[Rfam]
RNA sequence: GGGGGUGAACGGUUUCGACUCCGAUCGUUGAUCGAGGUGAAGCGUGCCGAGGAAGGCGACGAUGAUCUCGUUAACCAUGCGUCGCAAAAAAAUAAGUGCCGACAACAGUCGCACUGCCCCGCAGAGCGCUUACGCGCUCGCUGCCUGAUUACCAGGUAGGGGCUGUCGGGCCGGAGGCGUCCCCGCUCCGGAUCCCGGCAUCAUUAAGGGGACUCACCCUGCGGCUCGGCCGCGGAGCCGCAGGGGACAUCUCACAGCGGCUGGGAUCGUCACACCGGCUUGUUCGCGUGACCGGUGGAUCCGAGUAGAGACGUAGCGAACUGCGCACGGAGAAGCCCUCGUGAACCGACGGAGGACCCGGGUUCGAUUCCCGGCACCUCCACCA
Numbered sequence: 001g002g003g004g005g006u007g008a009a010c011g012g013u014u015u016c017g018a019c020u021c022c023g024a025u026c027g028u029u030g031a032u033c034g035a036g037g038u039g040a041a042g043c044g045u046g047c048c049g050a051g052g053a054a055g056g057c058g059a060c061g062a063u064g065a066u067c068u069c070g071u072u073a074a075c076c077a078u079g080c081g082u083c084g085c086a087a088a089a090a091a092a093u094a095a096g097u098g099c100c101g102a103c104a105a106c107a108g109u110c111g112c113a114c115u116g117c118c119c120c121g122c123a124g125a126g127c128g129c130u131u132a133c134g135c136g137c138u139c140g141c142u143g144c145c146u147g148a149u150u151a152c153c154a155g156g157u158a159g160g161g162g163c164u165g166u167c168g169g170g171c172c173g174g175a176g177g178c179g180u181c182c183c184c185g186c187u188c189c190g191g192a193u194c195c196c197g198g199c200a201u202c203a204u205u206a207a208g209g210g211g212a213c214u215c216a217c218c219c220u221g222c223g224g225c226u227c228g229g230c231c232g233c234g235g236a237g238c239c240g241c242a243g244g245g246g247a248c249a250u251c252u253c254a255c256a257g258c259g260g261c262u263g264g265g266a267u268c269g270u271c272a273c274a275c276c277g278g279c280u281u282g283u284u285c286g287c288g289u290g291a292c293c294g295g296u297g298g299a300u301c302c303g304a305g306u307a308g309a310g311a312c313g314u315a316g317c318g319a320a321c322u323g324c325g326c327a328c329g330g331a332g333a334a335g336c337c338c339u340c341g342u343g344a345a346c347c348g349a350c351g352g353a354g355g356a357c358c359c360g361g362g363u364u365c366g367a368u369u370c371c372c373g374g375c376a377c378c379u380c381c382a383c384c385a
Stems, first nucleotide, its partner, number of pairs: 001381007019354005025348001027346002033341005043329005048070005056085006139161001141159007164200006171191006179213006217245009228262006264302005271297003277293002282321004358374005

This 385-nucleotide RNA sequence from Pseudonocardia autotrophica belongs to the Rfam family "transfer-messenger RNA". The literature on the family includes a 1996 paper in RNA by Williams and Bartel, "Phylogenetic analysis of tmRNA secondary structure". Clan: tRNA clan. The organism belongs to Pseudonocardia, within Bacteria. Rfam links the family to the GO term RNA catabolic process.